This 72-nucleotide RNA sequence from Orthohepacivirus hominis belongs to the Rfam family "Hepatitis C virus stem-loop SL2531 and SL2549AU". It is annotated as a cis-regulatory element.

RNA sequence: UACUGGCAGAUGCAAGAGUGUGUGUCGUCUUGUGGAUGAUGCUGUUGAUAUCACAAGCUGAAGCUGCUUUGG
Numbered sequence: 001u002a003c004u005g006g007c008a009g010a011u012g013c014a015a016g017a018g019u020g021u022g023u024g025u026c027g028u029c030u031u032g033u034g035g036a037u038g039a040u041g042c043u044g045u046u047g048a049u050a051u052c053a054c055a056a057g058c059u060g061a062a063g064c065u066g067c068u069u070u071g072g
Base pairs, nucleotide, nucleotide: 006023007022008021010019011018024067025066027065029063030062031061034058037055038054
On this family, see Pirakitikulr et al., Mol Cell 2016: "The Coding Region of the HCV Genome Contains a Network of Regulatory RNA Structures". The family's consensus secondary structure was predicted with RNAfold.